[Rfam]
RNA sequence: GGGCAGGAUAGGUGAAGUUAGCUAACCUGCGGUUAGCUAACUUCACCUCCUGCUUAUUCGCACCUGCGGUGCUCAACGAAAAUAUACCCGACGAAUCA
Numbered sequence: 001g002g003g004c005a006g007g008a009u010a011g012g013u014g015a016a017g018u019u020a021g022c023u024a025a026c027c028u029g030c031g032g033u034u035a036g037c038u039a040a041c042u043u044c045a046c047c048u049c050c051u052g053c054u055u056a057u058u059c060g061c062a063c064c065u066g067c068g069g070u071g072c073u074c075a076a077c078g079a080a081a082a083u084a085u086a087c088c089c090g091a092c093g094a095a096u097c098a
Stems, first nucleotide, its partner, number of pairs: 001089003005085001007083001012046006019039003024034004051080001053078001060072005
A member of the RNA family "traJ-II RNA" from Pseudoduganella ginsengisoli, 98 nucleotides long. NCBI's taxonomy places the organism under Bacteria, Pseudomonadota, Betaproteobacteria, Oxalobacteraceae, Pseudoduganella. The family's RNA type in Rfam is cis-regulatory element. The match comes from Rfam's covariance-model search (52 bits). The base pairs follow the family's consensus structure, which is taken from published work.